[Rfam]
RNA sequence: AGCUCGACGGGGUCGACGGCGCGGGUGGCGUGCAGGUAGGUGCGCAGCGCGUCGGCGUGCCGGCCCUC
Numbered sequence: 001a002g003c004u005c006g007a008c009g010g011g012g013u014c015g016a017c018g019g020c021g022c023g024g025g026u027g028g029c030g031u032g033c034a035g036g037u038a039g040g041u042g043c044g045c046a047g048c049g050c051g052u053c054g055g056c057g058u059g060c061c062g063g064c065c066c067u068c
Base pairs, nucleotide, nucleotide: 004063005062006061008059009058012029013028016026017025035056037054040052041051042050043049044048

Record summary: Shown here is a 68-nucleotide RNA from Streptomyces hainanensis, a member of the family "ASdes TB sRNA". Taxonomically the source falls in Streptomyces (Bacteria, Actinomycetota, Actinomycetes, Streptomycetaceae).